[Rfam]
RNA: Small nucleolar RNA R44/J54/Z268 family
Organism: Vanilla planifolia
RNA sequence: ACUGCAGUUGAUGAGAAAUCAGACAGGGACAUCAGAGCCUUUAGCUAGUGCUAAUGAGAAUGAAGACUCGUCUGUUGGGAAUCUCUCUGAUGCAUC
Numbered sequence: 001a002c003u004g005c006a007g008u009u010g011a012u013g014a015g016a017a018a019u020c021a022g023a024c025a026g027g028g029a030c031a032u033c034a035g036a037g038c039c040u041u042u043a044g045c046u047a048g049u050g051c052u053a054a055u056g057a058g059a060a061u062g063a064a065g066a067c068u069c070g071u072c073u074g075u076u077g078g079g080a081a082u083c084u085c086u087c088u089g090a091u092g093c094a095u096c
Stems, first nucleotide, its partner, number of pairs: 003094004